This 123-nucleotide RNA from Echinops telfairi belongs to the Rfam family "Small nucleolar RNA SNORA26". The organism belongs to Echinops, within Eukaryota. Its family is annotated with RNA processing and nucleolus in the Gene Ontology. The snoRNA HBI-6 belong to the H/ACA family of snoRNAs, guiding the pseudouridylation of position U4522 if the 28S rRNA. HBI-6 is the human orthologue of mouse MBI-6 snoRNA. It is annotated as an H/ACA-box small nucleolar RNA. The family's consensus secondary structure was predicted with RNAalifold.
RNA sequence: GUGCCCUUGUAAGGUUGUUGCAGUACUUUAAGAGGUGAACACAGAAAGGCAAAACGAGUUUCCAUAAAACCCAGAGAUGAGGUCACCAUAACUCCUCUUUGGAUCCUGUCUGGAGUCACAACU
Numbered sequence: 001g002u003g004c005c006c007u008u009g010u011a012a013g014g015u016u017g018u019u020g021c022a023g024u025a026c027u028u029u030a031a032g033a034g035g036u037g038a039a040c041a042c043a044g045a046a047a048g049g050c051a052a053a054a055c056g057a058g059u060u061u062c063c064a065u066a067a068a069a070c071c072c073a074g075a076g077a078u079g080a081g082g083u084c085a086c087c088a089u090a091a092c093u094c095c096u097c098u099u100u101g102g103a104u105c106c107u108g109u110c111u112g113g114a115g116u117c118a119c120a121a122c123u
Stems, first nucleotide, its partner, number of pairs: 002051004007046002010043001014040003019035001021032001058117001060115005071102007079094003083090001